[Rfam]
RNA sequence: UAUCCCUAUGAAGAACGGACAUAUGUCCAAAUUAAAGUAGUGGACUGAUAUAUACAUGUUGAUUAAUAUAUUCUGAGGGAUU
Numbered sequence: 001u002a003u004c005c006c007u008a009u010g011a012a013g014a015a016c017g018g019a020c021a022u023a024u025g026u027c028c029a030a031a032u033u034a035a036a037g038u039a040g041u042g043g044a045c046u047g048a049u050a051u052a053u054a055c056a057u058g059u060u061g062a063u064u065a066a067u068a069u070a071u072u073c074u075g076a077g078g079g080a081u082u
Stems, first nucleotide, its partner, number of pairs: 002081005
RNA: Small nucleolar RNA R21
Organism: Beta vulgaris